[Rfam]
RNA sequence: UGUGUGGCAAUGAUGAGUUGCACUUUAUGGCAAGUCGCUGAUUGCAGUGGCACAGCAGACUUGUCCAGACAACCUGUGAUGACACCCACUGUGCACAGGGGCCAUCUGAGCCACA
Numbered sequence: 001u002g003u004g005u006g007g008c009a010a011u012g013a014u015g016a017g018u019u020g021c022a023c024u025u026u027a028u029g030g031c032a033a034g035u036c037g038c039u040g041a042u043u044g045c046a047g048u049g050g051c052a053c054a055g056c057a058g059a060c061u062u063g064u065c066c067a068g069a070c071a072a073c074c075u076g077u078g079a080u081g082a083c084a085c086c087c088a089c090u091g092u093g094c095a096c097a098g099g100g101g102c103c104a105u106c107u108g109a110g111c112c113a114c115a
Stems, first nucleotide, its partner, number of pairs: 004114001006112003026069001028067002030064004035059002043052003
Rfam assigns this 115-nucleotide RNA from Cynoglossus semilaevis to the family "Small nucleolar RNA SNORD67".
The source organism's lineage runs through Eukaryota, Carangaria, Pleuronectoidei, Cynoglossidae and Cynoglossus.
The pairing is the family consensus, mapped onto this sequence.
From the family's description: snoRNA HBII-166 belongs to the C/D family of snoRNAs.
Its family is annotated with nucleolus and RNA processing in the Gene Ontology.
The match comes from Rfam's covariance-model search (56 bits).